A member of the RNA family "Yersinia sRNA 276" from Plesiomonas shigelloides, 192 nucleotides long. Rfam classes the family as an antisense RNA. A reference for the family is Nuss et al. (2015), "Transcriptomic profiling of Yersinia pseudotuberculosis reveals reprogramming of the Crp regulon by temperature and uncovers Crp as a master regulator of small RNAs", PLoS Genet.
RNA sequence: AACCGACAUCAGAGAUUCAUUUUGCGAGCCCUGACCGACCGCCAAAUAGGCGUUCAUGCCCAGAUCUUUCAUCUGUUGCUCGCCAAUCACGCGGGUGGUGACCGGUGAGAACUCAUCGGCCAAUUGGCGUGCAUGGGAAGCCAGAUAGGCUGGGUUACAAAUAUUCGGCGGCAUAUUGCCCAAAUCUUUGGC
Number, nucleotide and partner (000 for none) at each position: 001a000002a000003c000004c000005g186006a185007c000008a000009u000010c000011a000012g032013a000014g030015a000016u028017u027018c026019a000020u024021u000022u000023u000024g020025c000026g018027a017028g016029c000030c014031c000032u012033g043034a000035c041036c000037g000038a000039c000040c000041g035042c000043c033044a000045a000046a000047u000048a000049g000050g059051c058052g000053u000054u000055c000056a000057u000058g051059c050060c000061c000062a077063g076064a000065u000066c000067u000068u000069u000070c000071a000072u000073c000074u000075g000076u063077u062078g132079c131080u000081c129082g128083c127084c126085a125086a124087u123088c000089a000090c000091g120092c119093g000094g117095g116096u115097g114098g000099u109100g000101a106102c000103c000104g000105g000106u101107g000108a000109g099110a000111a000112c000113u000114c097115a096116u095117c094118g000119g092120c091121c000122a000123a087124u086125u085126g084127g083128c082129g081130u000131g079132c078133a000134u159135g158136g000137g156138a155139a000140g000141c152142c000143a000144g000145a000146u000147a000148g000149g000150c000151u000152g141153g000154g000155u138156u137157a000158c135159a134160a000161a000162u000163a000164u183165u182166c000167g180168g179169c178170g000171g000172c000173a000174u000175a000176u000177u000178g169179c168180c167181c000182a165183a164184a000185u006186c005187u000188u000189u000190g000191g000192c000